[Rfam]
RNA: mir-3956 microRNA precursor family
Organism: Bos taurus
RNA sequence: GCCAGGUACGUGGAUGCUGAAGGUCAGAGGGAAGUGCUUCUGUCUGCACAUGUGUUCUCCAGUCCUCUGACCUUCCUGCAUCCCGUUCAUCUCUAGGA
Number, nucleotide and partner (000 for none) at each position: 001g000002c097003c096004a092005g091006g090007u089008a086009c085010g084011u000012g083013g082014a081015u080016g079017c078018u000019g075020a074021a073022g072023g071024u070025c069026a068027g067028a066029g065030g064031g000032a000033a058034g057035u000036g055037c054038u000039u000040c000041u050042g049043u048044c000045u000046g000047c000048a043049c042050a041051u000052g000053u000054g037055u036056u000057c034058u033059c000060c000061a000062g000063u000064c030065c029066u028067c027068u026069g025070a024071c023072c022073u021074u020075c019076c000077u000078g017079c016080a015081u014082c013083c012084c010085g009086u008087u000088c000089a007090u006091c005092u004093c000094u000095a000096g003097g002098a000